[Rfam]
RNA: Pistol ribozyme
Organism: Psychrobacillus phage Perkons
Nucleotides: 073
Stems, first nucleotide, its partner, number of pairs: 001016004006039006026072003033041001043067008
Number, partner (000 for none) and nucleotide at each position: 001016a002015g003014u004013c005000g006039u007038u008037u009036g010035a011034g012000c013004g014003a015002c016001u017000a018000u019000a020000a021000a022000a023000c024000a025000g026072g027071c028070a029000u030000u031000a032000g033041g034011c035010u036009c037008a038007a039006a040000g041033c042000g043067u044066g045065a046064u047063a048062c049061a050060c051000u052000c053000c054000a055000c056000a057000a058000a059000a060050g061049u062048g063047u064046a065045u066044c067043g068000g069000u070028u071027g072026c073000a